[Rfam]
RNA sequence: CGAAUCCUGAUGUGUUCGCUACAUGCCAAUCAGUUUUGACCGAACAAUUAUAUCGUCGGGAGUCUAACUUUUAUAAUGAAUGACAUGCCUUAACAGGACGUCAAAAGUUAUAAAGAGGACACCCACCUGCAAAUUGCGGGUUCAAAACGAUAAGCUCUAUGGACGGCACGAUUGGGAUUCGU
Numbered sequence: 001c002g003a004a005u006c007c008u009g010a011u012g013u014g015u016u017c018g019c020u021a022c023a024u025g026c027c028a029a030u031c032a033g034u035u036u037u038g039a040c041c042g043a044a045c046a047a048u049u050a051u052a053u054c055g056u057c058g059g060g061a062g063u064c065u066a067a068c069u070u071u072u073a074u075a076a077u078g079a080a081u082g083a084c085a086u087g088c089c090u091u092a093a094c095a096g097g098a099c100g101u102c103a104a105a106a107g108u109u110a111u112a113a114a115g116a117g118g119a120c121a122c123c124c125a126c127c128u129g130c131a132a133a134u135u136g137c138g139g140g141u142u143c144a145a146a147a148c149g150a151u152a153a154g155c156u157c158u159a160u161g162g163a164c165g166g167c168a169c170g171a172u173u174g175g176g177a178u179u180c181g182u
Stems, first nucleotide, its partner, number of pairs: 002180010012169004017165002033148003037144003040140002058124003062120004069114001071113007083101002088097002
RNA: 6S / SsrS RNA
Organism: Psychrobacillus insolitus